glmS glucosamine-6-phosphate activated ribozyme aptamer: a 170-nucleotide sequence from Halanaerobium praevalens. Taxonomically the source falls in Halanaerobium praevalens (Bacteria, Bacillati, Bacillota, Clostridia). From the family's description: This entry contains a glucosamine-6-phosphate activated ribozyme that is found in the mRNA for GlmS. GlmS is an enzyme that uses fructose-6-phosphate and glutamine to generate glucosamine-6-phosphate. The ribozyme catalyses self cleavage of the glmS mRNA that is thought to regulate GlmS activity. The match comes from Rfam's covariance-model search (110 bits). For this family Rfam cites "Backbone and nucleobase contacts to glucosamine-6-phosphate in the glmS ribozyme" (Jansen et al., Nat Struct Mol Biol, 2006). By type it is a riboswitch.

RNA sequence: AUUUUUUAAAAAGCGCCUGAACCUGAUCUGAACGGAAAAUUAUACAGGUGGACGAGGAAGAAGGUUAUCGAAAAUUCGGCGGAUGCCUUCAGACAGUGACUGUUCUGUCUUAGUUUAUUUCUUAAAAUUAGCAGGUAAUUGCUAAGACAAAGGGAAUAAAUAACAGUCAA
Numbered sequence: 001a002u003u004u005u006u007u008a009a010a011a012a013g014c015g016c017c018u019g020a021a022c023c024u025g026a027u028c029u030g031a032a033c034g035g036a037a038a039a040u041u042a043u044a045c046a047g048g049u050g051g052a053c054g055a056g057g058a059a060g061a062a063g064g065u066u067a068u069c070g071a072a073a074a075u076u077c078g079g080c081g082g083a084u085g086c087c088u089u090c091a092g093a094c095a096g097u098g099a100c101u102g103u104u105c106u107g108u109c110u111u112a113g114u115u116u117a118u119u120u121c122u123u124a125a126a127a128u129u130a131g132c133a134g135g136u137a138a139u140u141g142c143u144a145a146g147a148c149a150a151a152g153g154g155a156a157u158a159a160a161u162a163a164c165a166g167u168c169a170a
Stems, first nucleotide, its partner, number of pairs: 021049005060090005068079004091110006114160007128145007